[Rfam]
RNA sequence: AAAAAGGGCUUCUGCCGUGCGUGGCACGGGGGGGCUAUCCGGUCGCCCCCGCGGAAUCGACAUCAAGAGAUUUCGGAAGCACAAUUUUUGUGGGGUGGGGUCGCUGGUAACCGCUUGUUCCGGCGCCCCG
Numbered sequence: 001a002a003a004a005a006g007g008g009c010u011u012c013u014g015c016c017g018u019g020c021g022u023g024g025c026a027c028g029g030g031g032g033g034g035c036u037a038u039c040c041g042g043u044c045g046c047c048c049c050c051g052c053g054g055a056a057u058c059g060a061c062a063u064c065a066a067g068a069g070a071u072u073u074c075g076g077a078a079g080c081a082c083a084a085u086u087u088u089u090g091u092g093g094g095g096u097g098g099g100g101u102c103g104c105u106g107g108u109a110a111c112c113g114c115u116u117g118u119u120c121c122g123g124c125g126c127c128c129c130g
Stems, first nucleotide, its partner, number of pairs: 008080005013026005027051006034044001036042001052075007098128004103124005109119003
The family of this 130-nucleotide sequence from Syrrhaptes paradoxus is "U11 spliceosomal RNA".
The literature on the family includes a 2008 paper in J Mol Evol by Marz et al., "Evolution of spliceosomal snRNA genes in metazoan animals".
Pairs were carried over by alignment from the consensus structure, which is taken from published work.
Rfam classes the family as a spliceosomal small nuclear RNA.